[Rfam]
RNA: TPP riboswitch aptamer (THI element)
RNA sequence: GUGAACCACGCGGGGUGUCCCGCCCGGGUCGUGCACGCACGACAGGGGCGUCGGGACUGAGACGAGCGGGAAGGCCGCUCGGACCCGUCGAACCUGAUCUCGCUAGCACGAGCGGAGGAACGUGGGCAUGACGACGC
Numbered sequence: 001g002u003g004a005a006c007c008a009c010g011c012g013g014g015g016u017g018u019c020c021c022g023c024c025c026g027g028g029u030c031g032u033g034c035a036c037g038c039a040c041g042a043c044a045g046g047g048g049c050g051u052c053g054g055g056a057c058u059g060a061g062a063c064g065a066g067c068g069g070g071a072a073g074g075c076c077g078c079u080c081g082g083a084c085c086c087g088u089c090g091a092a093c094c095u096g097a098u099c100u101c102g103c104u105a106g107c108a109c110g111a112g113c114g115g116a117g118g119a120a121c122g123u124g125g126g127c128a129u130g131a132c133g134a135c136g137c
Base pairs, nucleotide, nucleotide: 006125007124008123009122010121011087012086013085014084016081017057018056019055020054021053064080065079066078067077068076093118094117095116099112100111101110102109